[Rfam]
RNA: SAH (S-adenosyl-L-homocysteine) riboswitch aptamer
RNA sequence: CAUUCCGAGGAGCGUUGCGACGAAAACUCCCGUUUUCGCCAGGCUCGGAUAUCCACACAACCGCGCUCACGUUAC
Numbered sequence: 001c002a003u004u005c006c007g008a009g010g011a012g013c014g015u016u017g018c019g020a021c022g023a024a025a026a027c028u029c030c031c032g033u034u035u036u037c038g039c040c041a042g043g044c045u046c047g048g049a050u051a052u053c054c055a056c057a058c059a060a061c062c063g064c065g066c067u068c069a070c071g072u073u074a075c
Base pairs, nucleotide, nucleotide: 004049005048006047007046008045021038022037023036024035025034026033